[Rfam]
RNA: TPP riboswitch aptamer (THI element)
RNA sequence: UUGGGCCACUAGGGGUGCUGUAAAGCUGAGAACAGCGUUUGUUAAGCUGUAACCCUUAGAACCUGAUUUUCUGGGUAAUUCCAGCGAAGGGAAGUGGUUUUUAUGAGUA
Numbered sequence: 001u002u003g004g005g006c007c008a009c010u011a012g013g014g015g016u017g018c019u020g021u022a023a024a025g026c027u028g029a030g031a032a033c034a035g036c037g038u039u040u041g042u043u044a045a046g047c048u049g050u051a052a053c054c055c056u057u058a059g060a061a062c063c064u065g066a067u068u069u070u071c072u073g074g075g076u077a078a079u080u081c082c083a084g085c086g087a088a089g090g091g092a093a094g095u096g097g098u099u100u101u102u103a104u105g106a107g108u109a
Stems, first nucleotide, its partner, number of pairs: 006097005011056004017026003033049004062090003071084004